[Rfam]
RNA sequence: UGCCAGUGAGGAGAGCAAGCAUUCUGUCUUACGCCUGUUCUAGCCCCAGAGCCAGUAAUGGUGAACCCACUGGGGCUAACGGGGAGAGGGGAUGAAAGCUUGUUCCAUAAGGAAGUGUCUGGGGUGC
Numbered sequence: 001u002g003c004c005a006g007u008g009a010g011g012a013g014a015g016c017a018a019g020c021a022u023u024c025u026g027u028c029u030u031a032c033g034c035c036u037g038u039u040c041u042a043g044c045c046c047c048a049g050a051g052c053c054a055g056u057a058a059u060g061g062u063g064a065a066c067c068c069a070c071u072g073g074g075g076c077u078a079a080c081g082g083g084g085a086g087a088g089g090g091g092a093u094g095a096a097a098g099c100u101u102g103u104u105c106c107a108u109a110a111g112g113a114a115g116u117g118u119c120u121g122g123g124g125u126g127c
Base pairs, nucleotide, nucleotide: 001126002125003124004123
Rfam assigns this 127-nucleotide sequence from Delphinapterus leucas to the family "Small nucleolar RNA SNORD22". The family's RNA type in Rfam is C/D-box small nucleolar RNA. The literature on the family includes a 1994 paper in Science by Tycowski et al., "Requirement for intron-encoded U22 small nucleolar RNA in 18S ribosomal RNA maturation". Rfam links the family to the GO terms RNA processing and nucleolus.